[Rfam]
RNA sequence: UUGAACACCCGGCAAACCCGGUGAAAGCCGGGGACGCAAAGCUGUGAGUCUAAGGCCUUUCGGGCUAUGAUCGUCAAGCCGCACAU
Numbered sequence: 001u002u003g004a005a006c007a008c009c010c011g012g013c014a015a016a017c018c019c020g021g022u023g024a025a026a027g028c029c030g031g032g033g034a035c036g037c038a039a040a041g042c043u044g045u046g047a048g049u050c051u052a053a054g055g056c057c058u059u060u061c062g063g064g065c066u067a068u069g070a071u072c073g074u075c076a077a078g079c080c081g082c083a084c085a086u
Base pairs, nucleotide, nucleotide: 012037013036017032018031019030020029021028022027041079042078043077045076046075047074048071049070050069055065056064057063058062
Shown here is an 86-nucleotide RNA sequence from Anaerotalea alkaliphila, a member of the family "c-di-GMP-I riboswitch aptamer". The base pairs follow the family's consensus structure, which is taken from published work. Rfam links the family to the GO term cyclic-di-GMP binding. The match comes from Rfam's covariance-model search (67 bits). Lineage of the source: Bacteria > Bacillati > Clostridia > Eubacteriales > Anaerotalea.